[Rfam]
RNA sequence: UUCGUUCAUCUCUUAGGAGACGCAAAUGUUGACUGAAGGAACGGGUU
Numbered sequence: 001u002u003c004g005u006u007c008a009u010c011u012c013u014u015a016g017g018a019g020a021c022g023c024a025a026a027u028g029u030u031g032a033c034u035g036a037a038g039g040a041a042c043g044g045g046u047u
Stems, first nucleotide, its partner, number of pairs: 003043005009020004023044001
Glutamine riboswitch aptamer (glnA leader): a 47-nucleotide RNA from Haifavirus tim68.
The organism belongs to Haifavirus tim68, within Viruses.
The match comes from Rfam's covariance-model search (35 bits).
The base pairs follow the family's consensus structure, which is taken from published work.